[Rfam]
RNA sequence: AAUGGAUAAAUGAUGUGAUAUAAACUGCGUUAUCUAUCUGCAAAUUUCUCUCGAGGAAUUGAAGAAAAUAUUUAGUACACUGAUAUCCAAG
Numbered sequence: 001a002a003u004g005g006a007u008a009a010a011u012g013a014u015g016u017g018a019u020a021u022a023a024a025c026u027g028c029g030u031u032a033u034c035u036a037u038c039u040g041c042a043a044a045u046u047u048c049u050c051u052c053g054a055g056g057a058a059u060u061g062a063a064g065a066a067a068a069u070a071u072u073u074a075g076u077a078c079a080c081u082g083a084u085a086u087c088c089a090a091g
Stems, first nucleotide, its partner, number of pairs: 003089005
This 91-nucleotide RNA from Beta vulgaris belongs to the Rfam family "Small nucleolar RNA snoR27". The family is grouped with related families in Rfam's "snR68 clan". On this family, see Brown et al., RNA 2001: "Multiple snoRNA gene clusters from Arabidopsis". A search with the family's covariance model found it, with a score of 69 bits.